[Rfam]
RNA sequence: GGGGAUCGGUGAUGUUAUCGAUCUCUGCUUUAUCUAUUUGAAGCUUCCUUCCGAUGAAUGAAGUGAAUUGAAGAUGUCCUAACUAAUACUGAGAUCCUCC
Number, nucleotide and partner (000 for none) at each position: 001g099002g098003g097004g096005a095006u094007c000008g000009g000010u000011g000012a000013u000014g000015u000016u000017a000018u000019c000020g000021a000022u000023c000024u000025c000026u000027g000028c000029u000030u000031u000032a000033u000034c000035u000036a000037u000038u000039u000040g000041a000042a000043g000044c000045u000046u000047c000048c000049u000050u000051c000052c000053g000054a000055u000056g000057a000058a000059u000060g000061a000062a000063g000064u000065g000066a000067a000068u000069u000070g000071a000072a000073g000074a000075u000076g000077u000078c000079c000080u000081a000082a000083c000084u000085a000086a000087u000088a000089c000090u000091g000092a000093g000094a006095u005096c004097c003098u002099c001100c000